[Rfam]
RNA sequence: GCACAGGUGAUGAGCAUUGCAAUAUGAAUGUCAACAGUGAUACUGUAAACGCUUUCUGAUGUG
Numbered sequence: 001g002c003a004c005a006g007g008u009g010a011u012g013a014g015c016a017u018u019g020c021a022a023u024a025u026g027a028a029u030g031u032c033a034a035c036a037g038u039g040a041u042a043c044u045g046u047a048a049a050c051g052c053u054u055u056c057u058g059a060u061g062u063g
Base pairs, nucleotide, nucleotide: 002063003062004061005060012055013053014052015051020045021044023042024041025040
Annotation:
A member of the RNA family "Small nucleolar RNA Z39" from Tyto alba, 63 nucleotides long. Rfam links the family to the GO terms nucleolus and RNA processing.